[Rfam]
RNA sequence: CAAAUAAAUAGGCAAAGCUGCCGAAAGGCAGUGACGCAAAGCUAUAGGGGCUAUAUUGUAUAGGGAGUACAGUCGUGCCAGCCAGCUGCCUCA
Numbered sequence: 001c002a003a004a005u006a007a008a009u010a011g012g013c014a015a016a017g018c019u020g021c022c023g024a025a026a027g028g029c030a031g032u033g034a035c036g037c038a039a040a041g042c043u044a045u046a047g048g049g050g051c052u053a054u055a056u057u058g059u060a061u062a063g064g065g066a067g068u069a070c071a072g073u074c075g076u077g078c079c080a081g082c083c084a085g086c087u088g089c090c091u092c093a
Base pairs, nucleotide, nucleotide: 012037013036017032018031019030020029021028022027040087041086042085043084047083048082049079050078051077057072
RNA: c-di-GMP-I riboswitch aptamer